[Rfam]
RNA sequence: GCCCGUCGCUACUACCGAUUGAAUUAUUUAGUGAGGUCUCCGGACGUGAUCACUGUGACGCCUUGCGUGUUACGGUUGUUUCGCAAAAGUUGACCGAACUUGAUUAUUUAGAGGAAGUAAAAGUCUUAACAAGGUUUCCGUAGGUGAAUCUGCGGAAGGAUCAUUA
Numbered sequence: 001g002c003c004c005g006u007c008g009c010u011a012c013u014a015c016c017g018a019u020u021g022a023a024u025u026a027u028u029u030a031g032u033g034a035g036g037u038c039u040c041c042g043g044a045c046g047u048g049a050u051c052a053c054u055g056u057g058a059c060g061c062c063u064u065g066c067g068u069g070u071u072a073c074g075g076u077u078g079u080u081u082c083g084c085a086a087a088a089g090u091u092g093a094c095c096g097a098a099c100u101u102g103a104u105u106a107u108u109u110a111g112a113g114g115a116a117g118u119a120a121a122a123g124u125c126u127u128a129a130c131a132a133g134g135u136u137u138c139c140g141u142a143g144g145u146g147a148a149u150c151u152g153c154g155g156a157a158g159g160a161u162c163a164u165u166a
Base pairs, nucleotide, nucleotide: 001130005125007123010119011118012117013116015114016113020110021109022108023107024106026104027103028102030100031099032098035095036094037093038092135158136157137156138155139154140153141152142151143150144149
Background
The record is a 166-nucleotide part of an RNA from Drosophila willistoni, which matches "Microsporidia small subunit ribosomal RNA" in Rfam. A reference for the family is Cannone et al. (2002), "The comparative RNA web (CRW) site: an online database of comparative sequence and structure information for ribosomal, intron, and other RNAs", BMC Bioinformatics.